The record is an 85-nucleotide sequence from Clostridium sp. 7_2_43FAA, which matches "Group II catalytic intron D1-D4-1" in Rfam.
RNA sequence: CAUAACCUAUAGUGAUAUAUAACUGAAUUAUCAGACGUCAGCAGAUGUCAUAGUAUUUCGCUAAACGCGUUAGCGAAGGAAAGAC
Numbered sequence: 001c002a003u004a005a006c007c008u009a010u011a012g013u014g015a016u017a018u019a020u021a022a023c024u025g026a027a028u029u030a031u032c033a034g035a036c037g038u039c040a041g042c043a044g045a046u047g048u049c050a051u052a053g054u055a056u057u058u059c060g061c062u063a064a065a066c067g068c069g070u071u072a073g074c075g076a077a078g079g080a081a082a083g084a085c
Base pairs, nucleotide, nucleotide: 001025002024008019009018010017011016037046038045039044047085048084049083056078057077058076059075060074061073

Gene Ontology term of the family: Group II intron splicing. Rfam's curators write: Group II introns are found in rRNA, tRNA and mRNA of organelles in fungi, plants and protists, and also in mRNA in bacteria.